The family of this 161-nucleotide RNA sequence from Mesorhabditis spiculigera is "U1 spliceosomal RNA". Its family is annotated with pre-mRNA 5'-splice site binding, mRNA 5'-splice site recognition and U1 snRNP in the Gene Ontology. From the family's description: U1 is a small nuclear RNA (snRNA) component of the spliceosome (involved in pre-mRNA splicing). Its 5' end forms complementary base pairs with the 5' splice junction, thus defining the 5' donor site of an intron. The family's consensus secondary structure is taken from published work. It scores 116 bits against the family's covariance model. Rfam 15.1 lists 40,184 matches to the family in 1,499 species. The source organism's lineage runs through Eukaryota, Bilateria, Rhabditoidea, Rhabditidae and Mesorhabditis. By type it is a spliceosomal small nuclear RNA.

RNA sequence: AAACUUACCUGGCUGGGAGAUUCCCGUGAUCAUGAAGACGGGAUCUCUAUGGCGAGGCUUGGCCAUUGCACUUUUGGCCGGGUUGACCUGUAAGGCAGCUCCGAGUUGGGGUUCGCCUACAGCUAAAUUUUGCGUGAGGGGCUGCGUUCGCGCGGCCCUGA
Number, nucleotide and partner (000 for none) at each position: 001a000002a000003a000004c000005u000006u000007a000008c000009c000010u000011g000012g123013c122014u121015g120016g048017g047018a046019g045020a044021u043022u000023c042024c041025c040026g039027u038028g000029a000030u000031c000032a000033u000034g000035a000036a000037g000038a027039c026040g025041g024042g023043a021044u020045c019046u018047c017048u016049a091050u090051g089052g088053c000054g087055a000056g084057g083058c082059u000060u080061g079062g078063c077064c076065a000066u000067u000068g000069c000070a000071c000072u000073u000074u000075u000076g064077g063078c062079c061080g060081g000082g058083u057084u056085g000086a000087c054088c052089u051090g050091u049092a000093a118094g117095g116096c000097a113098g112099c000100u109101c108102c000103g000104a000105g000106u000107u000108g101109g100110g000111g000112u098113u097114c000115g000116c095117c094118u093119a000120c015121a014122g013123c012124u000125a000126a000127a000128u000129u000130u000131u000132g000133c000134g000135u000136g000137a000138g159139g158140g157141g156142c000143u154144g153145c152146g151147u000148u000149c000150g000151c146152g145153c144154g143155g000156c141157c140158c139159u138160g000161a000